RNA: Small nucleolar RNA SNORD100
RNA sequence: UGUAUCAGUGAUGAUAGUUUGGCUCCCUCUACUGAAACUGAUGAGGACACAGCCAUUGUUACCCAAUUUCUGUCUGAGAUACA
Numbered sequence: 001u002g003u004a005u006c007a008g009u010g011a012u013g014a015u016a017g018u019u020u021g022g023c024u025c026c027c028u029c030u031a032c033u034g035a036a037a038c039u040g041a042u043g044a045g046g047a048c049a050c051a052g053c054c055a056u057u058g059u060u061a062c063c064c065a066a067u068u069u070c071u072g073u074c075u076g077a078g079a080u081a082c083a
Stems, first nucleotide, its partner, number of pairs: 001083006